Nucleotides: 107
Base pairs, nucleotide, nucleotide: 001107002106003105004104005103006102007101008100013041015040016039017038021031022030023029025080026079027078028077042072043071044070045069047068048067050063051062052061076099081096082095083094084093085092086091
Number, partner (000 for none) and nucleotide at each position: 001107c002106u003105c004104u005103u006102a007101u008100c009000a010000a011000g012000a013041g014000u015040g016039g017038u018000g019000g020000a021031g022030g023029g024000a025080u026079g027078u028077g029023c030022c031021c032000u033000a034000u035000g036000a037000a038017g039016c040015c041013c042072g043071g044070c045069a046000a047068c048067c049000g050063u051062c052061a053000u054000a055000u056000a057000a058000a059000u060000a061052u062051g063050a064000a065000a066000u067048g068047g069045u070044g071043c072042c073000a074000a075000u076099u077028c078027a079026c080025a081096a082095a083094a084093a085092g086091u087000g088000u089000a090000a091086a092085c093084u094083u095082u096081u097000g098000a099076a100008g101007a102006u103005g104004a105003g106002a107001g